[Rfam]
RNA sequence: UUAGCAGGUGAUGAUAGAUCAGACAGGGACAUCUGUAUUCCAAUUCGAAUAUGAUGAUUUGUCUGUGGGAAUCUCUCUGAUGCUAA
Numbered sequence: 001u002u003a004g005c006a007g008g009u010g011a012u013g014a015u016a017g018a019u020c021a022g023a024c025a026g027g028g029a030c031a032u033c034u035g036u037a038u039u040c041c042a043a044u045u046c047g048a049a050u051a052u053g054a055u056g057a058u059u060u061g062u063c064u065g066u067g068g069g070a071a072u073c074u075c076u077c078u079g080a081u082g083c084u085a086a
Base pairs, nucleotide, nucleotide: 002085003084004083005082006081